RNA sequence: CUGGCAGUCCCAAAGUGCUCACAGUGCAGGUAGUACUUGCUGACCUACUGCAGUUUGUGCACUUCAGGCACUGCUGG
Numbered sequence: 001c002u003g004g005c006a007g008u009c010c011c012a013a014a015g016u017g018c019u020c021a022c023a024g025u026g027c028a029g030g031u032a033g034u035a036c037u038u039g040c041u042g043a044c045c046u047a048c049u050g051c052a053g054u055u056u057g058u059g060c061a062c063u064u065c066a067g068g069c070a071c072u073g074c075u076g077g
Stems, first nucleotide, its partner, number of pairs: 004074004010068002013064006020057002023054001025052003029049005
Dot-bracket structure: ...((((..((.((((((.((.(.(((.(((((...........)))))))).).)).))))))..))..))))...
RNA: mir-17 microRNA precursor family